RNA sequence: GGGUGCGCGGCCGCGUGGCCGUGCAGGGAUCUCGGACGGUCGGGCCGCCGUCC
Numbered sequence: 001g002g003g004u005g006c007g008c009g010g011c012c013g014c015g016u017g018g019c020c021g022u023g024c025a026g027g028g029a030u031c032u033c034g035g036a037c038g039g040u041c042g043g044g045c046c047g048c049c050g051u052c053c
Stems, first nucleotide, its partner, number of pairs: 005024008034053007
RNA: nhaA-I RNA